[Rfam]
RNA: glmS glucosamine-6-phosphate activated ribozyme aptamer
Organism: Ilyobacter polytropus
RNA sequence: AAAAUAAAAAAAGCGCCAGAGCUUAUGAUCUUAUAAGCUGACGAGGAACGGAGUUAUCGAAAAUUCGGCGGAUGCUCCGAAGGUGGUUACAACCUCAGUAACGUUACAAAUUCAAAGAGUGAUCUUUGGGACAAAAGACGUUUCAGUAGCAUUU
Numbered sequence: 001a002a003a004a005u006a007a008a009a010a011a012a013g014c015g016c017c018a019g020a021g022c023u024u025a026u027g028a029u030c031u032u033a034u035a036a037g038c039u040g041a042c043g044a045g046g047a048a049c050g051g052a053g054u055u056a057u058c059g060a061a062a063a064u065u066c067g068g069c070g071g072a073u074g075c076u077c078c079g080a081a082g083g084u085g086g087u088u089a090c091a092a093c094c095u096c097a098g099u100a101a102c103g104u105u106a107c108a109a110a111u112u113c114a115a116a117g118a119g120u121g122a123u124c125u126u127u128g129g130g131a132c133a134a135a136a137g138a139c140g141u142u143u144c145a146g147u148a149g150c151a152u153u154u
Stems, first nucleotide, its partner, number of pairs: 020039008049079005057068004080095001082093001084091002098144001100142005112129007
Dot-bracket structure: ...................((((((((....)))))))).........(((((...((((....))))......)))))(.(.((....)).).)..(.(((((.......(((((((....)))))))........))))).)..........